This 97-nucleotide RNA sequence from Momordica charantia belongs to the Rfam family "MIR397 microRNA precursor family". It scores 69 bits against the family's covariance model. The family has 7 seed sequences and 496 matches in Rfam 15.1. The family's consensus secondary structure was predicted with WAR.
RNA sequence: GAAAGACACGUCAUUGAGUGCAGCGUUGAUGUAAAUUGUAAACUAAACAAUUCAAAUCUCCCAAUUUCCAUCAGCGCUGCAUUCAAUCACGUUUCUU
Numbered sequence: 001g002a003a004a005g006a007c008a009c010g011u012c013a014u015u016g017a018g019u020g021c022a023g024c025g026u027u028g029a030u031g032u033a034a035a036u037u038g039u040a041a042a043c044u045a046a047a048c049a050a051u052u053c054a055a056a057u058c059u060c061c062c063a064a065u066u067u068c069c070a071u072c073a074g075c076g077c078u079g080c081a082u083u084c085a086a087u088c089a090c091g092u093u094u095c096u097u
Stems, first nucleotide, its partner, number of pairs: 006094001008092004013087016030070002